[Rfam]
RNA sequence: UGCCAUGAUGUCGUAAUUUGCGUCUGACUCUGUGCUGGGUGACAGUUGCCUGCUGUCAGUGUGCUCGCACAGACGGCUGACGAACAGUCAACACUGAGCA
Numbered sequence: 001u002g003c004c005a006u007g008a009u010g011u012c013g014u015a016a017u018u019u020g021c022g023u024c025u026g027a028c029u030c031u032g033u034g035c036u037g038g039g040u041g042a043c044a045g046u047u048g049c050c051u052g053c054u055g056u057c058a059g060u061g062u063g064c065u066c067g068c069a070c071a072g073a074c075g076g077c078u079g080a081c082g083a084a085c086a087g088u089c090a091a092c093a094c095u096g097a098g099c100a
Base pairs, nucleotide, nucleotide: 001100002099003098021082022081023080024079030072031071032070033069034068039064040063041057042056043055044054045053
RNA: Small nucleolar RNA SNORD16